[Rfam]
RNA sequence: UGGAUCGAUGAUGAAUUCUGGUCAUCAUGAUGACUAUCCGAUGAAUACAUGUGAAAAUCUGAGGUCCAA
Numbered sequence: 001u002g003g004a005u006c007g008a009u010g011a012u013g014a015a016u017u018c019u020g021g022u023c024a025u026c027a028u029g030a031u032g033a034c035u036a037u038c039c040g041a042u043g044a045a046u047a048c049a050u051g052u053g054a055a056a057a058u059c060u061g062a063g064g065u066c067c068a069a
Base pairs, nucleotide, nucleotide: 002067003066004065005064006063
Small nucleolar RNA SNORD113/SNORD114 family: a 69-nucleotide RNA from Galemys pyrenaicus. Rfam's curators write: The imprinted human domain at 14q32 contains two clusters of tandemly repeated small nucleolar RNAs named 14q(I) and 14q(II) snoRNAs. These two clusters are named SNORD113 and SNORD114 respectively in the HGNC approved gene symbol nomenclature. The snoRNAs found in both clusters are clearly related and are represented here by a single family. These snoRNAs are intron encoded and are processed from the tissue-specific non-coding human MEG8 RNA, which lies downstream of the imprinted genes DLK1 and GTL2. snoRNAs 14q(I) and 14q(II) differ from previously identified C/D box snoRNAs in their expression profiles and lack of complementarity to rRNA and snRNA. Homologues of these snoRNAs are found in the imprinted non-coding mouse transcript Rian, and in the rat non-coding Bsr (brain-specific repetitive) RNA. Taxonomically the source falls in Galemys (Eukaryota, Chordata, Teleostomi, Tetrapoda). The literature on the family includes a 2002 paper in Hum Mol Genet by Cavaille et al., "Identification of tandemly-repeated C/D snoRNA genes at the imprinted human 14q32 domain reminiscent of those at the Prader-Willi/Angelman syndrome region". It scores 45 bits against the family's covariance model. Its family is annotated with RNA processing and nucleolus in the Gene Ontology. It is annotated as a C/D-box small nucleolar RNA.